[Rfam]
RNA sequence: AUUAAACCCCGACUCCGAGCCUGUCUUCCUAAGUCGCAAAGAUAUGGAAACUGUGCCUGUGAGACUUCUCACACAUGGUUGGCUUAGAAAUGAGCCAGCCACUCAACUUAGAAAGGUGUCGUCUUUCAACUUCA
Numbered sequence: 001a002u003u004a005a006a007c008c009c010c011g012a013c014u015c016c017g018a019g020c021c022u023g024u025c026u027u028c029c030u031a032a033g034u035c036g037c038a039a040a041g042a043u044a045u046g047g048a049a050a051c052u053g054u055g056c057c058u059g060u061g062a063g064a065c066u067u068c069u070c071a072c073a074c075a076u077g078g079u080u081g082g083c084u085u086a087g088a089a090a091u092g093a094g095c096c097a098g099c100c101a102c103u104c105a106a107c108u109u110a111g112a113a114a115g116g117u118g119u120c121g122u123c124u125u126u127c128a129a130c131u132u133c134a
Stems, first nucleotide, its partner, number of pairs: 003128001006125001011120003015116002019056002022053002026049004033043003058073005076101011102111002
A member of the RNA family "Molybdenum/Tungsten riboswitch aptamer (Moco RNA motif)" from Pasteurellaceae bacterium RH1A, 134 nucleotides long. The family's consensus secondary structure is taken from published work. NCBI's taxonomy places the organism under Bacteria, Pseudomonadati, Pseudomonadota, Pasteurellales, Pasteurellaceae. A search with the family's covariance model found it, with a score of 76 bits.